[Rfam]
Rfam assigns this 505-nucleotide RNA from Saccharopolyspora erythraea to the family "Saccharopolyspora sRNA 350". Its family is annotated with regulation of secondary metabolite biosynthetic process in the Gene Ontology. The family's RNA type in Rfam is antisense RNA.
RNA sequence: UGCGCGGUGAAAUCCCACCUGUGGUCCUCGCUGACGAGGGCCUGCUCGCCGAAGUAGCGGCCGUCGGCGAGGAUGUCCAGAACCGGCUGAUCGCCGUACUCACCGGUGCCCAUGGUCUUGACCUUGCCGUGCGCGAUGAGCAGCAGCUCGUCCGCCGGGCGGUCGGCGGAGACCAGCACGUCGCCCGGCUCGUAGUCGCGCCGGACGAAGCGCUCGGCGACCGCGCCCAGCACAGCGUCGUCGUCGACGUCGCGCAACAGCGCCAGUUCACGCAGUUCCGGUGGCACCACGUACACCGAGUCGCCGGUGUUGGAACAGGUCACCAGUCCGUCACCGAGGGCGUAGGUGAGCCUGCGGUUCACCCGGUAUGAACCGGCCUGGGUCUGCACCCACGGCAGCUUGCGCAGCAGCCAUCGCGGGCUGAUGCUCUGCAUCUGGGGCGGCGUCUUGGUGGUGGUCGCGAGGUUGCGCGCCUGGGCGGUUCCCAGGCUCAGCUGCCCGGACG
Numbered sequence: 001u002g003c004g005c006g007g008u009g010a011a012a013u014c015c016c017a018c019c020u021g022u023g024g025u026c027c028u029c030g031c032u033g034a035c036g037a038g039g040g041c042c043u044g045c046u047c048g049c050c051g052a053a054g055u056a057g058c059g060g061c062c063g064u065c066g067g068c069g070a071g072g073a074u075g076u077c078c079a080g081a082a083c084c085g086g087c088u089g090a091u092c093g094c095c096g097u098a099c100u101c102a103c104c105g106g107u108g109c110c111c112a113u114g115g116u117c118u119u120g121a122c123c124u125u126g127c128c129g130u131g132c133g134c135g136a137u138g139a140g141c142a143g144c145a146g147c148u149c150g151u152c153c154g155c156c157g158g159g160c161g162g163u164c165g166g167c168g169g170a171g172a173c174c175a176g177c178a179c180g181u182c183g184c185c186c187g188g189c190u191c192g193u194a195g196u197c198g199c200g201c202c203g204g205a206c207g208a209a210g211c212g213c214u215c216g217g218c219g220a221c222c223g224c225g226c227c228c229a230g231c232a233c234a235g236c237g238u239c240g241u242c243g244u245c246g247a248c249g250u251c252g253c254g255c256a257a258c259a260g261c262g263c264c265a266g267u268u269c270a271c272g273c274a275g276u277u278c279c280g281g282u283g284g285c286a287c288c289a290c291g292u293a294c295a296c297c298g299a300g301u302c303g304c305c306g307g308u309g310u311u312g313g314a315a316c317a318g319g320u321c322a323c324c325a326g327u328c329c330g331u332c333a334c335c336g337a338g339g340g341c342g343u344a345g346g347u348g349a350g351c352c353u354g355c356g357g358u359u360c361a362c363c364c365g366g367u368a369u370g371a372a373c374c375g376g377c378c379u380g381g382g383u384c385u386g387c388a389c390c391c392a393c394g395g396c397a398g399c400u401u402g403c404g405c406a407g408c409a410g411c412c413a414u415c416g417c418g419g420g421c422u423g424a425u426g427c428u429c430u431g432c433a434u435c436u437g438g439g440g441c442g443g444c445g446u447c448u449u450g451g452u453g454g455u456g457g458u459c460g461c462g463a464g465g466u467u468g469c470g471c472g473c474c475u476g477g478g479c480g481g482u483u484c485c486c487a488g489g490c491u492c493a494g495c496u497g498c499c500c501g502g503a504c505g
Stems, first nucleotide, its partner, number of pairs: 006390004011385001014382003020325002022322005035313001037311002040308003048305001050303003054233002059228002062225003066110003075103001079100002082097002085094001119220001122217002126213002130209001131206001134203002138199001140197001143196002149192002154189007162177001165174002236298002240294002242291003249285005254278001256277003260271001262269001329342004355375003362370001391431002394428004399423001403418003407415001438475003443471004447465003451461002481504002484501001486497003
The family has 2 seed sequences and 1,170 matches in Rfam 15.1.